[Rfam]
RNA sequence: AAAAAGUCAUCAACAACAAAGUUGUAGAAAUCAUUAAUAUCUAAAACUUUUAUUUUGGUCAUUUAUCCAUUCGAUAAAGUGAUAGCAACAUUGUUCAUAAAUUUUACAAAUCCCUCGUAUGGUUUCAUAAACUAUAAGAGAGAUAUGUAAAUUUUGUGAACAAUAUUACUAUCACUUUCUCGGAUGAACAAAUACCUAAAAUAAAAGUUGUAUAUAUUGAUGAGUUCUACAACUUUUAUGUUCAUGAAUUUUUCGAAUGAAAUC
Number, nucleotide and partner (000 for none) at each position: 001a000002a000003a251004a250005a249006g000007u247008c246009a245010u244011c000012a242013a241014c000015a239016a000017c000018a000019a235020a234021g233022u232023u231024g230025u229026a228027g227028a226029a225030a000031u223032c000033a221034u220035u219036a218037a217038u216039a215040u214041c000042u212043a000044a000045a209046a208047c207048u206049u205050u204051u203052a202053u201054u200055u199056u198057g000058g196059u000060c000061a193062u192063u191064u190065a000066u188067c000068c186069a185070u184071u000072c182073g181074a180075u000076a178077a177078a176079g175080u174081g173082a000083u171084a170085g169086c000087a167088a166089c000090a164091u163092u162093g161094u160095u159096c158097a157098u156099a155100a154101a153102u000103u151104u150105u000106a148107c147108a146109a000110a144111u143112c000113c000114c000115u000116c000117g000118u000119a000120u134121g133122g132123u131124u130125u129126c000127a000128u000129a125130a124131a123132c122133u121134a120135u000136a000137a000138g000139a000140g000141a000142g000143a111144u110145a000146u108147g107148u106149a000150a104151a103152u000153u101154u100155u099156g098157u097158g096159a095160a094161c093162a092163a091164u090165a000166u088167u087168a000169c085170u084171a083172u000173c081174a080175c079176u078177u077178u076179c000180u074181c073182g072183g000184a070185u069186g068187a000188a066189c000190a064191a063192a062193u061194a000195c000196c058197u000198a056199a055200a054201a053202u052203a051204a050205a049206a048207g047208u046209u045210g000211u000212a042213u000214a040215u039216a038217u037218u036219g035220a034221u033222g000223a031224g000225u029226u028227c027228u026229a025230c024231a023232a022233c021234u020235u019236u000237u000238a000239u015240g000241u013242u012243c000244a010245u009246g008247a007248a000249u005250u004251u003252u000253u000254c000255g000256a000257a000258u000259g000260a000261a000262a000263u000264c000

Description: The record is a 264-nucleotide RNA sequence from Sorghum bicolor, which matches "MIR821 microRNA precursor family" in Rfam. Rfam's curators put it in the seed alignment. The base pairs follow the family's consensus structure, which was predicted with RNAalifold. Rfam links the family to the GO terms miRNA-mediated post-transcriptional gene silencing and RISC complex. On this family, see Luo et al., FEBS Lett 2006: "Rice embryogenic calli express a unique set of microRNAs, suggesting regulatory roles of microRNAs in plant post-embryogenic development". Rfam 15.1 lists 1,438 matches to the family in 13 species.